[Rfam]
RNA sequence: CCGCGCCGUCAGCCGAGUUCCGGCACCACCUCGAGUGCCGGAAGCGGGGGAACCACCUGUGGGUCGCACCGAGCGGCCCACCGGGGCGAAUCGGUCCAGCAGCGUCCGUAGCGCCGUCGUCCGGCGCGAGCCCGUCAGCUCACCCCGUAGGCCGUUGGAUGAGGACCG
Numbered sequence: 001c002c003g004c005g006c007c008g009u010c011a012g013c014c015g016a017g018u019u020c021c022g023g024c025a026c027c028a029c030c031u032c033g034a035g036u037g038c039c040g041g042a043a044g045c046g047g048g049g050g051a052a053c054c055a056c057c058u059g060u061g062g063g064u065c066g067c068a069c070c071g072a073g074c075g076g077c078c079c080a081c082c083g084g085g086g087c088g089a090a091u092c093g094g095u096c097c098a099g100c101a102g103c104g105u106c107c108g109u110a111g112c113g114c115c116g117u118c119g120u121c122c123g124g125c126g127c128g129a130g131c132c133c134g135u136c137a138g139c140u141c142a143c144c145c146c147g148u149a150g151g152c153c154g155u156u157g158g159a160u161g162a163g164g165a166c167c168g
Base pairs, nucleotide, nucleotide: 012152013151014150018043019042020041021040022039023038024037025036026035044148045147046146047145048144049143054083084133085132086131092108093107094106111127112126113125114124
Rfam assigns this 168-nucleotide RNA from Baekduia soli to the family "c-di-AMP riboswitch aptamer (ydaO/yuaA leader)".